[Rfam]
RNA sequence: UAGGGAAGACAGGGCUCAGGACCCCUCCCUGAGCCCAGGGUAACUCUGAAAAUAGAGGGGAA
Number, nucleotide and partner (000 for none) at each position: 001u000002a000003g000004g000005g000006a000007a000008g041009a000010c039011a000012g036013g035014g034015c033016u000017c031018a030019g029020g028021a000022c060023c059024c058025c057026u056027c055028c020029c019030u018031g017032a000033g015034c014035c013036c012037a000038g000039g010040g000041u008042a000043a000044c000045u000046c000047u000048g000049a000050a000051a000052a000053u000054a000055g027056a026057g025058g024059g023060g022061a000062a000

Gag/pol translational readthrough site: a 62-nucleotide RNA sequence from Nannospalax galili. For this family Rfam cites "Pseudoknot-dependent read-through of retroviral gag termination codons: importance of sequences in the spacer and loop 2" (Wills et al., EMBO J, 1994). NCBI's taxonomy places the organism under Eukaryota, Vertebrata, Teleostomi, Rodentia, Nannospalax. Its family is annotated with viral translational readthrough in the Gene Ontology. It is annotated as a cis-regulatory element.